RNA sequence: ACAUGACUUAGUUAGGGGGCAAAUAUUAAUAGAAAUCUAAUGUUUAUUAGAUUUCUCUCAAAGAUAGGUUGUUUAUUGAAGGAACAAUCUGUUCUGUUGUAUUAGUUGUUCUUCAAACACCCUUUCACAUUU
Numbered sequence: 001a002c003a004u005g006a007c008u009u010a011g012u013u014a015g016g017g018g019g020c021a022a023a024u025a026u027u028a029a030u031a032g033a034a035a036u037c038u039a040a041u042g043u044u045u046a047u048u049a050g051a052u053u054u055c056u057c058u059c060a061a062a063g064a065u066a067g068g069u070u071g072u073u074u075a076u077u078g079a080a081g082g083a084a085c086a087a088u089c090u091g092u093u094c095u096g097u098u099g100u101a102u103u104a105g106u107u108g109u110u111c112u113u114c115a116a117a118c119a120c121c122c123u124u125u126c127a128c129a130u131u132u
Stems, first nucleotide, its partner, number of pairs: 004021002007018003034053005063126002066123003071120001076116003080113009
RNA: Small nucleolar RNA U19